[Rfam]
RNA sequence: UACACAAAGCAUAUGAUGAGAAAGCACUGAAACUGACCCCAUGUGAAGUGCAUGCAAUCCAACCCUGAGCUUUGUGUC
Numbered sequence: 001u002a003c004a005c006a007a008a009g010c011a012u013a014u015g016a017u018g019a020g021a022a023a024g025c026a027c028u029g030a031a032a033c034u035g036a037c038c039c040c041a042u043g044u045g046a047a048g049u050g051c052a053u054g055c056a057a058u059c060c061a062a063c064c065c066u067g068a069g070c071u072u073u074g075u076g077u078c
Base pairs, nucleotide, nucleotide: 002077003076004075005074006073007072008071009070010069
Rfam assigns this 78-nucleotide RNA sequence from Calypte anna to the family "Small nucleolar RNA SNORD69". Rfam describes the family as follows. snoRNA HBII-210 belongs to the C/D family of snoRNAs. For this family Rfam cites "RNomics: an experimental approach that identifies 201 candidates for novel, small, non-messenger RNAs in mouse" (Huttenhofer et al., EMBO J, 2001). Rfam classes the family as a C/D-box small nucleolar RNA. The match comes from Rfam's covariance-model search (55 bits). The pairing is the family consensus, mapped onto this sequence.